This 277-nucleotide sequence from Mycoplasma sp. Mirounga ES2805-ORL belongs to the Rfam family "Bacterial RNase P class B". The family's consensus secondary structure is taken from published work. The match comes from Rfam's covariance-model search (227 bits). By type it is a ribozyme. The source organism's lineage runs through Bacteria, Mycoplasmatota, Mollicutes, Mycoplasmatales and Mycoplasma. Rfam describes the family as follows. Ribonuclease P (RNase P) is a ubiquitous endoribonuclease, found in archaea, bacteria and eukarya as well as chloroplasts and mitochondria.
RNA sequence: AGCAUUGGCCAACAGCUGCUUUUAUUUUAAAAGUAGAGGAAAGUCCACGCUAGCACAACCUGCGAUGGUUGUAGUGUUCAUGCUAGAUCCAAUAAAUCUAGGCUUAGACGACAAGUGCCACAGAGACGAGAAUUGUGAAACGCGGUAAACUCCAUGAGCUAGAAACCCAAAUUUUGGUAGGGGAAUUUUUCUAUAAGAAUUGAAUUUAUGAAAAAAAUCACUAAGUGAUUAGAUAAAUUGUUGGCGCCUGAAAAGGUACAAAACGUGGCUUAUAGAU
Numbered sequence: 001a002g003c004a005u006u007g008g009c010c011a012a013c014a015g016c017u018g019c020u021u022u023u024a025u026u027u028u029a030a031a032a033g034u035a036g037a038g039g040a041a042a043g044u045c046c047a048c049g050c051u052a053g054c055a056c057a058a059c060c061u062g063c064g065a066u067g068g069u070u071g072u073a074g075u076g077u078u079c080a081u082g083c084u085a086g087a088u089c090c091a092a093u094a095a096a097u098c099u100a101g102g103c104u105u106a107g108a109c110g111a112c113a114a115g116u117g118c119c120a121c122a123g124a125g126a127c128g129a130g131a132a133u134u135g136u137g138a139a140a141c142g143c144g145g146u147a148a149a150c151u152c153c154a155u156g157a158g159c160u161a162g163a164a165a166c167c168c169a170a171a172u173u174u175u176g177g178u179a180g181g182g183g184a185a186u187u188u189u190u191c192u193a194u195a196a197g198a199a200u201u202g203a204a205u206u207u208a209u210g211a212a213a214a215a216a217a218u219c220a221c222u223a224a225g226u227g228a229u230u231a232g233a234u235a236a237a238u239u240g241u242u243g244g245c246g247c248c249u250g251a252a253a254a255g256g257u258a259c260a261a262a263a264c265g266u267g268g269c270u271u272a273u274a275g276a277u
Base pairs, nucleotide, nucleotide: 004277005276006275007273008245009244010243011242012241013240014239016036017035018034019033020032021031041271042270043269045268046267047266048265049264050162051161052160053159054158055072056071057070058069059068060067078157079156080155081154082153083101084100085099086098087097088096102109103107110152111151115150116149117146118145119144166182167181168180186215187214188213189212190211191210216230217229218228219227220226221225247256248255249254